[Rfam]
RNA sequence: GCACAUCUGAAAAGCGGGCUGUCCGUCUCGUACGCCAGCCCCACCCAAGGUGCAAGCCCCUCGGGGCGAACCUCUCAGGUUCCGAUGACAGAUGGGGAGGA
Dot-bracket structure: .(.((((((......((((((..............)))))).(((.(..(.(...((........))....).))..)))........)))))).).....
Shown here is a 101-nucleotide RNA sequence from Streptomyces sp. SID8379, a member of the family "Glycine riboswitch aptamer". The organism belongs to Streptomyces, within Bacteria. Gene Ontology term of the family: glycine biosynthetic process. A search with the family's covariance model found it, with a score of 41 bits.